Rfam assigns this 265-nucleotide part of an RNA from uncultured marine crenarchaeote KM3-153-F8 to the family "Archaeal large subunit ribosomal RNA".
Taxonomically the source falls in Nitrosopumilales (Archaea, Thermoproteati, Nitrososphaerota, Nitrososphaeria).
Its family is annotated with ribosome and structural constituent of ribosome in the Gene Ontology.

[Rfam]
Nucleotides: 265
Stems, first nucleotide, its partner, number of pairs: 005121013020042002023039001026036004046053002058088004068078003091104004124263002127260001131253006140229001142227009151217001153185004160177007190214003194210002197208002231241003
Number, partner (000 for none) and nucleotide at each position: 001000g002000a003000g004000u005121u006120u007119a008118u009117u010116g011115u012114u013113a014112u015111g016110g017109c018000g019000a020042g021041c022000c023039u024000a025000a026036g027035a028034g029033u030000u031000a032000a033029a034028c035027u036026c037000g038000u039023a040000a041021g042020c043000a044000a045000a046053g047052g048000g049000a050000a051000a052047c053046c054000g055000a056000u057000a058088u059087u060086c061085u062000g063000c064000a065000u066000u067000u068078u069077u070076a071000u072000u073000u074000a075000u076070u077069a078068a079000u080000u081000u082000g083000a084000g085061a086060g087059a088058a089000g090000a091104g092103g093102u094101c095000u096000g097000a098000a099000a100000g101094g102093g103092c104091c105000u106000u107000u108000a109017g110016u111015c112014a113013u114012a115011g116010c117009a118008g119007u120006a121005a122000g123000a124263c125262u126000a127260g128000a129000a130000u131253c132252c133251g134250g135249a136248c137000g138000a139000u140229c141000g142227u143226g144225u145224c146223u147222u148221g149220a150219g151217u152000a153185g154184g155183a156182u157000g158000a159000a160177g161176c162175c163174u164173g165172g166171g167000g168000a169000a170000a171166c172165c173164u174163g175162g176161g177160u178000c179000g180000a181000g182156g183155u184154c185153c186000a187000c188000a189000a190214g191213g192212g193000u194210g195209u196000u197208g198207a199000c200000g201000u202000g203000c204000a205000a206000a207198u208197c209195a210194c211000u212192c213191c214190c215000c216000u217151g218000a219150c220149u221148u222147g223146a224145g225144a226143c227142a228000a229140g230000g231241g232240g233239c234000c235000a236000a237000a238000a239233g240232c241231c242000a243000a244000u245000c246000u247000a248136g249135u250134c251133c252132g253131g254000u255000g256000a257000u258000a259000g260127c261000u262125a263124g264000u265000u